[Rfam]
RNA sequence: UGCACUCACAAUGGUAAGUCGCUCUGGAUAAGAGUGCCUGCUAAAUGACUAAAA
Numbered sequence: 001u002g003c004a005c006u007c008a009c010a011a012u013g014g015u016a017a018g019u020c021g022c023u024c025u026g027g028a029u030a031a032g033a034g035u036g037c038c039u040g041c042u043a044a045a046u047g048a049c050u051a052a053a054a
Base pairs, nucleotide, nucleotide: 014041015040016039020036021035022034023033024032025031
A member of the RNA family "UnaL2 LINE 3' element" from Salmo salar, 54 nucleotides long. From the family's description: The eel long interspersed element (LINE) UnaL2 and its partner short interspersed element (SINE) share a conserved 3' tail containing a stem-loop that is critical for their retrotransposition. By type it is a cis-regulatory element. Pairs were carried over by alignment from the consensus structure, which is taken from published work. The family has 30 seed sequences and 493,311 matches in Rfam 15.1.